[Rfam]
DUF3800-VII RNA: a 99-nucleotide RNA.
RNA sequence: AGUGAGUUAGUAGUUUGCUGAAUCACUGAAGGGUGUAAUGAUUUACACCAGCAUGCUUGCCAUGUGGGAUCCUUCAGUCAGAGGAACACUCACUUUUUU
Numbered sequence: 001a002g003u004g005a006g007u008u009a010g011u012a013g014u015u016u017g018c019u020g021a022a023u024c025a026c027u028g029a030a031g032g033g034u035g036u037a038a039u040g041a042u043u044u045a046c047a048c049c050a051g052c053a054u055g056c057u058u059g060c061c062a063u064g065u066g067g068g069a070u071c072c073u074u075c076a077g078u079c080a081g082a083g084g085a086a087c088a089c090u091c092a093c094u095u096u097u098u099u
Base pairs, nucleotide, nucleotide: 001094002093003092004091005090006089007088016082018081019080020079021078026077027076028075029074030073031072032049033048034047035046036045037044038043052064053063054062055061
It is annotated as a small RNA.